[Rfam]
RNA sequence: AAGCAGCAUCAGUACAGCGACAGCUUCUGUAAUACAGAAUUAUUACCUCUAUGGGGCUGCCUGCUGGCGAUGUAGCGAGA
Dot-bracket structure: ..((.((((.....(((((..((((((.........................))))))...)))))...)))).))....
Numbered sequence: 001a002a003g004c005a006g007c008a009u010c011a012g013u014a015c016a017g018c019g020a021c022a023g024c025u026u027c028u029g030u031a032a033u034a035c036a037g038a039a040u041u042a043u044u045a046c047c048u049c050u051a052u053g054g055g056g057c058u059g060c061c062u063g064c065u066g067g068c069g070a071u072g073u074a075g076c077g078a079g080a
Stems, first nucleotide, its partner, number of pairs: 003076002006073004015066005022058006